[Rfam]
RNA sequence: UUGUGCCUGGCUCCCUGUAUGCCACACAUAUAGACCAAAUCAAUAUUUUGAGCUCAAGAUUGGCUACUAUGGGUGGCGUGCGAGGAGCCAAGCAUAC
Numbered sequence: 001u002u003g004u005g006c007c008u009g010g011c012u013c014c015c016u017g018u019a020u021g022c023c024a025c026a027c028a029u030a031u032a033g034a035c036c037a038a039a040u041c042a043a044u045a046u047u048u049u050g051a052g053c054u055c056a057a058g059a060u061u062g063g064c065u066a067c068u069a070u071g072g073g074u075g076g077c078g079u080g081c082g083a084g085g086a087g088c089c090a091a092g093c094a095u096a097c
Stems, first nucleotide, its partner, number of pairs: 002096005008090007016082009027071003
Dot-bracket structure: .(((((.(((((((.(((((((((..(((.......................................)))..))))))))).))))))).))))).
RNA: mir-160 microRNA precursor family
Organism: Asparagus officinalis